Shown here is an 87-nucleotide RNA from Bacillus sp. OK048, a member of the family "c-di-GMP-I riboswitch aptamer". About the family: GEMM was predicted in a large-scale screen for bacterial structured RNA regulatory elements. The source organism's lineage runs through Bacteria, Bacillota, Bacilli, Bacillaceae and Bacillus.

[Rfam]
RNA sequence: AAACGAAAAAGGCAAAUCUGAGGAAACUCAGAGACGCAAAGCUAUAGGGGCUAAAUUGUGAAAACAAUAUGCCAGCCAGUUACCGAA
Numbered sequence: 001a002a003a004c005g006a007a008a009a010a011g012g013c014a015a016a017u018c019u020g021a022g023g024a025a026a027c028u029c030a031g032a033g034a035c036g037c038a039a040a041g042c043u044a045u046a047g048g049g050g051c052u053a054a055a056u057u058g059u060g061a062a063a064a065c066a067a068u069a070u071g072c073c074a075g076c077c078a079g080u081u082a083c084c085g086a087a
Base pairs, nucleotide, nucleotide: 012037013036017032018031019030020029021028022027040081041080042079043078047077048076049073050072051071056067057066058065059064

The match comes from Rfam's covariance-model search (90 bits). Gene Ontology term of the family: cyclic-di-GMP binding.